A member of the RNA family "uup RNA" from Vagococcus fluvialis, 49 nucleotides long. The family's RNA type in Rfam is cis-regulatory element. Lineage of the source: Bacteria > Bacillati > Bacilli > Enterococcaceae > Vagococcus.

[Rfam]
RNA sequence: GACGAAUUUGCUCUGAACAUUAGAUAUAGAUGAAGCAUAUGUUCAGAGC
Numbered sequence: 001g002a003c004g005a006a007u008u009u010g011c012u013c014u015g016a017a018c019a020u021u022a023g024a025u026a027u028a029g030a031u032g033a034a035g036c037a038u039a040u041g042u043u044c045a046g047a048g049c
Stems, first nucleotide, its partner, number of pairs: 011048005017042003